[Rfam]
RNA sequence: GUUGCAAGUCAGGGUCACAGCAGAAGCACUCAUGGCACAGCCUGUUAAAUUCCGAAGAAUCUGUGAAUUCUGCU
Numbered sequence: 001g002u003u004g005c006a007a008g009u010c011a012g013g014g015u016c017a018c019a020g021c022a023g024a025a026g027c028a029c030u031c032a033u034g035g036c037a038c039a040g041c042c043u044g045u046u047a048a049a050u051u052c053c054g055a056a057g058a059a060u061c062u063g064u065g066a067a068u069u070c071u072g073c074u
Base pairs, nucleotide, nucleotide: 013042014041015040019074020073021072022071023070024069025068026038046063047062049060050059051058052057
Source information: This 74-nucleotide sequence from Crocodylus porosus belongs to the Rfam family "Mammalian CPEB3 ribozyme". Taxonomically the source falls in Crocodylus (Eukaryota, Metazoa, Tetrapoda, Crocodylia). Rfam links the family to the GO term RNA nuclease activity. The match comes from Rfam's covariance-model search (40 bits). Rfam's curators write: The mammalian CPEB3 ribozyme is a self cleaving RNA located in the second intron of the CPEB3 gene which belongs to a family of genes regulating messenger RNA polyadenylation.